[Rfam]
RNA sequence: GCACAGAUGAUGUGAGUAUUUUAGUAUGAGAAACCGUGAUACUGUAAACGCUUUCUGAUGUG
Number, nucleotide and partner (000 for none) at each position: 001g000002c062003a061004c060005a059006g000007a000008u000009g000010a000011u000012g054013u000014g000015a052016g051017u050018a000019u000020u000021u000022u044023a043024g042025u041026a040027u039028g000029a000030g000031a000032a000033a000034c000035c000036g000037u000038g000039a027040u026041a025042c024043u023044g022045u000046a000047a000048a000049c000050g017051c016052u015053u000054u012055c000056u000057g000058a000059u005060g004061u003062g002
RNA: Small nucleolar RNA Z39
Organism: Sphenodon punctatus